[Rfam]
RNA: raiA RNA
Organism: Olsenella uli
RNA sequence: UUUACCCAGGUCUGUGGUUGCGGGCGCAAGCCCUAGUUCAUGGCAGACGAGGCCGAAAGGAUCCACGUAAGCCCGGGUGUGCGCACCCGGGCGAGCAUGGCUCGUCCUAGAAGUAAGUCGCACCGCCCGAAACCAAGCCGAGGCGUCCAGCCUCACGGGCGAGAGGGCCAUCAGUGGGGGACCGUGCAGUCCCGAAGCGAGAGCCCCGGUGUGCGAGUGUGGGGUCAAAUACCAGGUCAGCUGGGUAAA
Number, nucleotide and partner (000 for none) at each position: 001u249002u248003u247004a246005c245006c244007c243008a242009g241010g000011u000012c240013u239014g238015u234016g233017g232018u231019u000020g000021c000022g000023g000024g000025c000026g000027c000028a000029a000030g000031c000032c000033c000034u000035a000036g000037u000038u000039c000040a220041u219042g218043g053044c000045a000046g106047a105048c104049g103050a102051g101052g000053c043054c000055g000056a000057a000058a000059g000060g000061a000062u100063c099064c000065a000066c000067g000068u000069a000070a000071g000072c090073c089074c000075g087076g086077g000078u000079g000080u000081g000082c000083g000084c000085a000086c076087c075088c000089g073090g072091g000092c000093g000094a000095g000096c000097a000098u227099g063100g062101c051102u050103c049104g048105u047106c046107c000108u000109a000110g000111a000112a000113g000114u000115a000116a000117g000118u000119c213120g212121c211122a210123c209124c161125g160126c159127c158128c157129g000130a000131a000132a000133c000134c000135a000136a000137g000138c000139c000140g000141a000142g000143g000144c000145g000146u000147c000148c000149a000150g000151c000152c000153u000154c000155a000156c000157g128158g127159g126160c125161g124162a000163g000164a000165g206166g205167g204168c203169c000170a000171u000172c000173a000174g198175u197176g000177g000178g000179g000180g191181a190182c189183c000184g000185u000186g000187c000188a000189g182190u181191c180192c000193c000194g000195a000196a000197g175198c174199g000200a000201g000202a000203g168204c167205c166206c165207c000208g000209g123210u122211g121212u120213g119214c000215g000216a000217g000218u042219g041220u040221g000222g000223g000224g000225u000226c000227a098228a000229a000230u000231a018232c017233c016234a015235g000236g000237u000238c014239a013240g012241c009242u008243g007244g006245g005246u004247a003248a002249a001